[Rfam]
Plastid-rps12 3UTR RNA: a 91-nucleotide sequence. For this family Rfam cites "Retrograde signaling in plants: A critical review focusing on the GUN pathway and beyond" (Richter et al., Plant Commun, 2023). The family's consensus secondary structure was predicted with LocARNA. The sequence is in the family's curated seed alignment.
RNA sequence: GGUUUCUCUUGGUGUAAAUCCAAUCAGCUCCAUUUAAGAUAAGAAGCAAUAUCCCAUUGGUAGCAAAUGUUAUCCAUUAAGCGGGAUAAAU
Numbered sequence: 001g002g003u004u005u006c007u008c009u010u011g012g013u014g015u016a017a018a019u020c021c022a023a024u025c026a027g028c029u030c031c032a033u034u035u036a037a038g039a040u041a042a043g044a045a046g047c048a049a050u051a052u053c054c055c056a057u058u059g060g061u062a063g064c065a066a067a068u069g070u071u072a073u074c075c076a077u078u079a080a081g082c083g084g085g086a087u088a089a090a091u
Stems, first nucleotide, its partner, number of pairs: 009023004052086004056077002059074005